Shown here is a 292-nucleotide RNA sequence from Coccomyxa sp. Obi, a member of the family "Metazoan signal recognition particle RNA". The base pairs follow the family's consensus structure, which is taken from published work. A reference for the family is Wild et al. (2002), "Towards the structure of the mammalian signal recognition particle", Curr Opin Struct Biol. Its family is annotated with SRP-dependent cotranslational protein targeting to membrane, signal sequence recognition and signal recognition particle, endoplasmic reticulum targeting in the Gene Ontology. Rfam describes the family as follows. The signal recognition particle (SRP) is a universally conserved ribonucleoprotein.
RNA sequence: GCUGGCGGGCGUUGCGACCCGUUGUGACCCGAGCGGGGGCUGGUUGGUGAGGACGGCAGUCUAGUGCAUCCCGCCCACGCAUGUCUGUUGACGGCUGCGUCCCAUUCAAGGCCGGGGUCUGUGCCGGUUGCCGAUCGGAGGAUUGGCAGUCGAGGCAGUUAAAGGCAGGCGCACCGGCUGAGGGCGGAAACGCAGCAAGUUCAGUCUGCGCCCUGGUCGGUGAAGGGAGAAUGUGCCAGAGGGCAGAGCGUGGAAUCUCGGGCCGUGCUAUUUCUGUGGGACCACUGCCUUU
Numbered sequence: 001g002c003u004g005g006c007g008g009g010c011g012u013u014g015c016g017a018c019c020c021g022u023u024g025u026g027a028c029c030c031g032a033g034c035g036g037g038g039g040c041u042g043g044u045u046g047g048u049g050a051g052g053a054c055g056g057c058a059g060u061c062u063a064g065u066g067c068a069u070c071c072c073g074c075c076c077a078c079g080c081a082u083g084u085c086u087g088u089u090g091a092c093g094g095c096u097g098c099g100u101c102c103c104a105u106u107c108a109a110g111g112c113c114g115g116g117g118u119c120u121g122u123g124c125c126g127g128u129u130g131c132c133g134a135u136c137g138g139a140g141g142a143u144u145g146g147c148a149g150u151c152g153a154g155g156c157a158g159u160u161a162a163a164g165g166c167a168g169g170c171g172c173a174c175c176g177g178c179u180g181a182g183g184g185c186g187g188a189a190a191c192g193c194a195g196c197a198a199g200u201u202c203a204g205u206c207u208g209c210g211c212c213c214u215g216g217u218c219g220g221u222g223a224a225g226g227g228a229g230a231a232u233g234u235g236c237c238a239g240a241g242g243g244c245a246g247a248g249c250g251u252g253g254a255a256u257c258u259c260g261g262g263c264c265g266u267g268c269u270a271u272u273u274c275u276g277u278g279g280g281a282c283c284a285c286u287g288c289c290u291u292u
Stems, first nucleotide, its partner, number of pairs: 001040003004023006028037003042290002045287005054279001056277004062270006071261003076252005082245005088239001093237003097234004101227002105224004110218009119158004125152012159163001165209006176201004184193003